[Rfam]
Description: This 156-nucleotide RNA sequence from Thalictrum thalictroides belongs to the Rfam family "U4 spliceosomal RNA". The base pairs follow the family's consensus structure, which is taken from published work. For this family Rfam cites "The uRNA database" (Zwieb, Nucleic Acids Res, 1997). From the family's description: U4 small nuclear RNA (U4 snRNA) is a component of the major U2-dependent spliceosome. It is annotated as a spliceosomal small nuclear RNA.
RNA sequence: AUCUUUGCGCUUGGGGCAAUGACGCAGCUAGUGAGGUUAUACCGAGGCGCGUCAAUUUCUGGUUGAAAACUAUUUCCAAACCCCCUCUUCGGCCCUGGUGAAUGCCUGGGCUAUCGAGAAUUUCUGGAAAAGCUUCCUCUAAACAAGGGUAAAGCC
Numbered sequence: 001a002u003c004u005u006u007g008c009g010c011u012u013g014g015g016g017c018a019a020u021g022a023c024g025c026a027g028c029u030a031g032u033g034a035g036g037u038u039a040u041a042c043c044g045a046g047g048c049g050c051g052u053c054a055a056u057u058u059c060u061g062g063u064u065g066a067a068a069a070c071u072a073u074u075u076c077c078a079a080a081c082c083c084c085c086u087c088u089u090c091g092g093c094c095c096u097g098g099u100g101a102a103u104g105c106c107u108g109g110g111c112u113a114u115c116g117a118g119a120a121u122u123u124c125u126g127g128a129a130a131a132g133c134u135u136c137c138u139c140u141a142a143a144c145a146a147g148g149g150u151a152a153a154g155c156c
Stems, first nucleotide, its partner, number of pairs: 021053005027048003035043003085118003091112005097106002132155003